[Rfam]
This 151-nucleotide sequence from Ketogulonicigenium vulgare belongs to the Rfam family "FMN riboswitch aptamer (RFN element)". It scores 112 bits against the family's covariance model. Lineage of the source: Bacteria > Pseudomonadati > Alphaproteobacteria > Ketogulonicigenium > Ketogulonicigenium vulgare. The family's consensus secondary structure is taken from published work.
RNA sequence: AGACGUUCUCGGGGCGGGGUGCGAUUCCCCACCGGCGGUAUUUGCGCCACAAGCGCAUCAGCCCGCGAGCGCCCAUGCCAUCAGGGAUGGGGUCAGCAGAUCCGGUGUGAACCCGGAGCCGACGGUAUAGUCCGGAUGAGAGAGAACACAU
Numbered sequence: 001a002g003a004c005g006u007u008c009u010c011g012g013g014g015c016g017g018g019g020u021g022c023g024a025u026u027c028c029c030c031a032c033c034g035g036c037g038g039u040a041u042u043u044g045c046g047c048c049a050c051a052a053g054c055g056c057a058u059c060a061g062c063c064c065g066c067g068a069g070c071g072c073c074c075a076u077g078c079c080a081u082c083a084g085g086g087a088u089g090g091g092g093u094c095a096g097c098a099g100a101u102c103c104g105g106u107g108u109g110a111a112c113c114c115g116g117a118g119c120c121g122a123c124g125g126u127a128u129a130g131u132c133c134g135g136a137u138g139a140g141a142g143a144g145a146a147c148a149c150a151u
Base pairs, nucleotide, nucleotide: 005147006146007145008144009143010142017029018028019027031131032130033121034120035066036065037064038063061119062118069097070096101117102116103115104114105113123134124133125132